[Rfam]
RNA: tRNA
RNA sequence: GCGCCUUUAGCUCAGCUGGCAGAGCACCUGACUCUUAAUCAGGGUGUCCAGGGUUCGAACCCCUGAAGGCGCA
Dot-bracket structure: (((((((..((((........)))).(((((.......))))).....(((((.......)))))))))))).
Numbered sequence: 001g002c003g004c005c006u007u008u009a010g011c012u013c014a015g016c017u018g019g020c021a022g023a024g025c026a027c028c029u030g031a032c033u034c035u036u037a038a039u040c041a042g043g044g045u046g047u048c049c050a051g052g053g054u055u056c057g058a059a060c061c062c063c064u065g066a067a068g069g070c071g072c073a
Stems, first nucleotide, its partner, number of pairs: 001072007010025004027043005049065005